[Rfam]
RNA sequence: AUAAUGAUACUUCUAUACGUUGUUGCUUCCCACCGAGAAAAGGGGAGAGGUGAAAUUCCUAUGA
Numbered sequence: 001a002u003a004a005u006g007a008u009a010c011u012u013c014u015a016u017a018c019g020u021u022g023u024u025g026c027u028u029c030c031c032a033c034c035g036a037g038a039a040a041a042g043g044g045g046a047g048a049g050g051u052g053a054a055a056u057u058c059c060u061a062u063g064a
Stems, first nucleotide, its partner, number of pairs: 012061001013025001015023002026047003030043002048060003
Rfam assigns this 64-nucleotide RNA from Vagococcus elongatus to the family "pemK RNA". The organism belongs to Vagococcus, within Bacteria.